RNA sequence: AUGGAAGCAUAUUAUUGAUAGUAAUAAUCCAUGGGUCCUAGAAAGCAUGGGGCUGCACUGAGGGAUUCCUCGCCCUCACACAGCUCUAGAUUCAACAGUUUGCCGGUGCUUAGCCAUCGGACCUCUAAUCGCAGCAGCAGCACCAUGGAGAAGAAUUCCCCAUGAGUACUGGUUUUGGCUGAAGCACUGCAAACCGGCAAGUCACAGAACGGCAAGGGCUCGCUCAUGAGUCUU
Numbered sequence: 001a002u003g004g005a006a007g008c009a010u011a012u013u014a015u016u017g018a019u020a021g022u023a024a025u026a027a028u029c030c031a032u033g034g035g036u037c038c039u040a041g042a043a044a045g046c047a048u049g050g051g052g053c054u055g056c057a058c059u060g061a062g063g064g065a066u067u068c069c070u071c072g073c074c075c076u077c078a079c080a081c082a083g084c085u086c087u088a089g090a091u092u093c094a095a096c097a098g099u100u101u102g103c104c105g106g107u108g109c110u111u112a113g114c115c116a117u118c119g120g121a122c123c124u125c126u127a128a129u130c131g132c133a134g135c136a137g138c139a140g141c142a143c144c145a146u147g148g149a150g151a152a153g154a155a156u157u158c159c160c161c162a163u164g165a166g167u168a169c170u171g172g173u174u175u176u177g178g179c180u181g182a183a184g185c186a187c188u189g190c191a192a193a194c195c196g197g198c199a200a201g202u203c204a205c206a207g208a209a210c211g212g213c214a215a216g217g218g219c220u221c222g223c224u225c226a227u228g229a230g231u232c233u234u
Stems, first nucleotide, its partner, number of pairs: 098194006115184001117182004217232005
Shown here is a 234-nucleotide RNA from Juglans regia, a member of the family "Early nodulin 40". The family has 35 seed sequences and 341 matches in Rfam 15.1. Rfam links the family to the GO term nodulation.